RNA sequence: GCGUCAGUGUAGCUGAGUGGUUACUUCAAGUCGCAUCUAUCUGGUGACUCAGGUCUCAGGUUCGAACCACUGGUGCCGUCUGACGUUUUA
Numbered sequence: 001g002c003g004u005c006a007g008u009g010u011a012g013c014u015g016a017g018u019g020g021u022u023a024c025u026u027c028a029a030g031u032c033g034c035a036u037c038u039a040u041c042u043g044g045u046g047a048c049u050c051a052g053g054u055c056u057c058a059g060g061u062u063c064g065a066a067c068c069a070c071u072g073g074u075g076c077c078g079u080c081u082g083a084c085g086u087u088u089u090a
Stems, first nucleotide, its partner, number of pairs: 002085006012074004017070004025066003029062001
Source information:
Vault RNA: a 90-nucleotide RNA sequence from Ameiurus melas. Lineage of the source: Eukaryota > Opisthokonta > Euteleostomi > Osteoglossocephalai > Ameiurus. The match comes from Rfam's covariance-model search (56 bits).